[Rfam]
Notes:
This 108-nucleotide RNA sequence from Streptomyces sp. CdTB01 belongs to the Rfam family "Glycine riboswitch aptamer".

RNA sequence: GCACAUCUGAAAAGCGGGCCGCCGUCCUCGGCGGUCCCACCCACGGUGCAAGCCAUGCCGUCCGCGGUCAUGGCGAACCUCUCAGGUUCCGAUGACAGAUGGGGAGGA
Number, nucleotide and partner (000 for none) at each position: 001g000002c103003a000004c101005a100006u099007c098008u097009g096010a000011a000012a000013a000014g000015c000016g037017g036018g035019c034020c033021g032022c031023c030024g029025u000026c000027c000028u000029c024030g023031g022032c021033g020034g019035u018036c017037c016038c000039a087040c086041c085042c000043a082044c000045g000046g081047u000048g079049c000050a000051a000052g074053c073054c072055a071056u070057g069058c000059c000060g000061u000062c000063c000064g000065c000066g000067g000068u000069c057070a056071u055072g054073g053074c052075g000076a000077a000078c000079c048080u000081c046082u043083c000084a000085g041086g040087u039088u000089c000090c000091g000092a000093u000094g000095a000096c009097a008098g007099a006100u005101g004102g000103g002104g000105a000106g000107g000108a000